[Rfam]
Nucleotides: 101
Base pairs, nucleotide, nucleotide: 009074010073011072012071013070014069015068016067019062020061021060022059028053029052030051031050033048034047035046075097076096077095078094079093080092081091082090
Number, partner (000 for none) and nucleotide at each position: 001000a002000a003000u004000c005000g006000u007000u008000u009074c010073g011072u012071u013070c014069u015068g016067u017000u018000u019062g020061c021060g022059g023000c024000a025000g026000a027000c028053a029052g030051g031050a032000a033048c034047g035046g036000c037000g038000g039000c040000g041000c042000g043000a044000a045000a046035c047034c048033g049000c050031u051030c052029c053028u054000g055000a056000a057000u058000a059022c060021c061020g062019c063000u064000a065000c066000c067016g068015c069014g070013g071012a072011a073010c074009g075097g076096c077095u078094c079093c080092g081091g082090c083000a084000a085000g086000g087000a088000u089000a090082g091081c092080c093079g094078g095077g096076g097075u098000a099000a100000a101000g
This 101-nucleotide sequence belongs to the Rfam family "Termite-flg RNA". The sequence is in the family's curated seed alignment.